The family of this 110-nucleotide RNA from Evansella cellulosilytica is "SAM riboswitch aptamer (S box leader)".
RNA sequence: CUCUUAUCCAGAGAGGUGGAGGGACCGGCCCGAUGAAACCCGGCAACCAGCGAGAUGUUUAUCUAGCAAGGUGCCAAUUCCUACAAAGCUUUUGCUUUGAAAGAUGAGAG
Numbered sequence: 001c002u003c004u005u006a007u008c009c010a011g012a013g014a015g016g017u018g019g020a021g022g023g024a025c026c027g028g029c030c031c032g033a034u035g036a037a038a039c040c041c042g043g044c045a046a047c048c049a050g051c052g053a054g055a056u057g058u059u060u061a062u063c064u065a066g067c068a069a070g071g072u073g074c075c076a077a078u079u080c081c082u083a084c085a086a087a088g089c090u091u092u093u094g095c096u097u098u099g100a101a102a103g104a105u106g107a108g109a110g
Stems, first nucleotide, its partner, number of pairs: 001110008013041001015040003021031003027081002042075004047071002050067002053064001079102001084099006
Rfam links the family to the GO term regulation of gene expression.